This 123-nucleotide sequence belongs to the Rfam family "Plastid-psbA-1 3UTR RNA". Rfam describes the family as follows. Plastid psbA-1 is a non-coding RNA (ncRNA) present in plastids. It was identified in inverted repeat sequences in the 3 prime untranslate region (3UTR) of photosystem II quinone-binding protein (psbA). Clan: Plastid-psbA 3UTR RNA clan. The family's RNA type in Rfam is cis-regulatory element.
[Rfam]
RNA sequence: UUGAAGCUCCAUCUACAAAUGGGUAAGGCUUCGGUCUUGGUGUUUGUGAGUUCUUCAAAACAAAACUAAAUUAAAGGAGCAAUAUCCAAUUUCUAUCAAAAGGGUUGGUAUUGCUCCUUUAUU
Numbered sequence: 001u002u003g004a005a006g007c008u009c010c011a012u013c014u015a016c017a018a019a020u021g022g023g024u025a026a027g028g029c030u031u032c033g034g035u036c037u038u039g040g041u042g043u044u045u046g047u048g049a050g051u052u053c054u055u056c057a058a059a060a061c062a063a064a065a066c067u068a069a070a071u072u073a074a075a076g077g078a079g080c081a082a083u084a085u086c087c088a089a090u091u092u093c094u095a096u097c098a099a100a101a102g103g104g105u106u107g108g109u110a111u112u113g114c115u116c117c118u119u120u121a122u123u
Base pairs, nucleotide, nucleotide: 008023009022010021011020012019073120074119075118076117077116078115079114080113081112082111083110084109085108088105091102092101094099